RNA: Flavivirus DB element
Organism: Donggang virus
RNA sequence: GGGGGCCAGAUGUCAUGUCUCUCAAGCCUAGGAGACACUAGACACUCUGGACUAUCGGUUAGAGGAAACCCCCCCAAAAAUGUAUAGGCU
Numbered sequence: 001g002g003g004g005g006c007c008a009g010a011u012g013u014c015a016u017g018u019c020u021c022u023c024a025a026g027c028c029u030a031g032g033a034g035a036c037a038c039u040a041g042a043c044a045c046u047c048u049g050g051a052c053u054a055u056c057g058g059u060u061a062g063a064g065g066a067a068a069c070c071c072c073c074c075c076a077a078a079a080a081u082g083u084a085u086a087g088g089c090u
Base pairs, nucleotide, nucleotide: 001075002074003073004072005071006050007049015039016037017036018035019034020033021032022031057070058069059068060067